[Rfam]
RNA sequence: CGGCAAGCCUCCAGCGUGCCUGGGUCUGGGGUGGCCCCGUGCAUUCCUUUAGUGCUUGCAAGAACAUUGGGAAACGGUUUGAGGCCUUGCCCUGCUCCAUCCAGAGCAAGGUUAUAGACAUUUCGAACAGAU
Number, nucleotide and partner (000 for none) at each position: 001c000002g000003g059004c058005a057006a056007g055008c054009c000010u000011c000012c000013a000014g000015c000016g000017u043018g042019c041020c000021u000022g037023g036024g035025u034026c033027u000028g000029g000030g000031g000032u000033g026034g025035c024036c023037c022038c000039g000040u000041g019042c018043a017044u000045u000046c000047c000048u000049u000050u000051a000052g000053u000054g008055c007056u006057u005058g004059c003060a000061a000062g000063a000064a000065c000066a000067u000068u000069g000070g000071g124072a123073a122074a121075c000076g000077g000078u000079u000080u000081g000082a000083g000084g000085c111086c110087u109088u108089g107090c106091c000092c104093u103094g102095c000096u000097c000098c000099a000100u000101c000102c094103a093104g092105a000106g090107c089108a088109a087110g086111g085112u000113u000114a000115u000116a000117g000118a000119c000120a000121u074122u073123u072124c071125g000126a000127a000128c000129a000130g000131a000132u000
Rfam assigns this 132-nucleotide sequence from Felis catus to the family "Small nucleolar RNA SNORA9". By type it is an H/ACA-box small nucleolar RNA. ACA9 is a member of the H/ACA class of snoRNA that guide the sites of modification of uridines to pseudouridines. NCBI's taxonomy places the organism under Eukaryota, Euteleostomi, Laurasiatheria, Carnivora, Felis.